[Rfam]
RNA: MIR530 microRNA precursor family
Organism: Juglans regia
RNA sequence: GCCAAUAUGUUGCCUUUAUCUGCAUUUGCACCUGCACCUCUACUUGUCUUUCUCUCUUGCUCUCUCUCUCAACCAGCUUUAAAGCUUGCCAAAAGUUAUAUAUGGGGAGAUGAACCAAGCAACUGGUGCAGGUUCAGGUGCUGAUGCAGUUGAAUGCCAUCUUGGC
Dot-bracket structure: (((((.(((..((.((((.(((((((.(((((((.((((.................(((.(..........).))).....................................................)))).))))))).))))))).)))).))))).)))))